Source information
SAM riboswitch aptamer (S box leader): a 114-nucleotide RNA sequence from Bacillus sp. OK048.
RNA sequence: UUCUUAUCAAGAGAGGUAGAGGGAAUGGCCCUGUGACGCCUCAGCAACCAUCAAUGGCUUUUUCAUUGAAAAGGUGCUAACUCCAACAAGUUAUUUUAACUUGGCAGAUAAGAA
Numbered sequence: 001u002u003c004u005u006a007u008c009a010a011g012a013g014a015g016g017u018a019g020a021g022g023g024a025a026u027g028g029c030c031c032u033g034u035g036a037c038g039c040c041u042c043a044g045c046a047a048c049c050a051u052c053a054a055u056g057g058c059u060u061u062u063u064c065a066u067u068g069a070a071a072a073g074g075u076g077c078u079a080a081c082u083c084c085a086a087c088a089a090g091u092u093a094u095u096u097u098a099a100c101u102u103g104g105c106a107g108a109u110a111a112g113a114a
Stems, first nucleotide, its partner, number of pairs: 001114008013042005021031003026085003043078004048074002051069006082106001087103006

The SAM riboswitch is found upstream of a number of genes which code for proteins involved in methionine or cysteine biosynthesis in Gram-positive bacteria.